Shown here is a 46-nucleotide sequence from Roseimaritima ulvae, a member of the family "Acido-Lenti-1 RNA". By type it is a small RNA.
RNA sequence: CCUGGGGUUGGCACCCCAGGCUAUAUGCUGCCGCUGCUCCGCAGCU
Numbered sequence: 001c002c003u004g005g006g007g008u009u010g011g012c013a014c015c016c017c018a019g020g021c022u023a024u025a026u027g028c029u030g031c032c033g034c035u036g037c038u039c040c041g042c043a044g045c046u
Base pairs, nucleotide, nucleotide: 001020002019003018004017005016006015007014008013033045034044035043036042037041
Dot-bracket structure: ((((((((....))))))))............(((((...))))).
Rfam 15.1 lists 2,607 matches to the family in 171 species.